[Rfam]
Background: Eukaryotic small subunit ribosomal RNA: a 170-nucleotide part of an RNA from Cercocebus atys. Lineage of the source: Eukaryota > Opisthokonta > Deuterostomia > Primates > Cercocebus. The family has 90 seed sequences and 75,755 matches in Rfam 15.1. The match comes from Rfam's covariance-model search (1463 bits). The literature on the family includes a 2001 paper in Science by Yusupov et al., "Crystal structure of the ribosome at 5.5 A resolution". The family is grouped with related families in Rfam's "SSU clan". Its family is annotated with structural constituent of ribosome and ribosome in the Gene Ontology.

RNA sequence: CCGCCUGUCGCUACUAUGGAUUGGAUGGUUUAGUGAGGCCCUCGGAUCGGCCCCGCCGGGGUCGGCCCACGGCCCUGGCAGAGCACUGAGAAGAUUGUGGAACUUGACUAUGUAGAGGAAGUAAAAGUCCUAACAAGGUUUCCGUAGGUGAACCUGCGGAAGGAUCAUUA
Dot-bracket structure: (.(...(.(..((((.(...(.(.((((((.(((...((..((...((((..(.(((.((((((.....)))))).))).)....))))...))..))...))).)))))).))...).))))...).)....)..).((((((((((....))))))))))........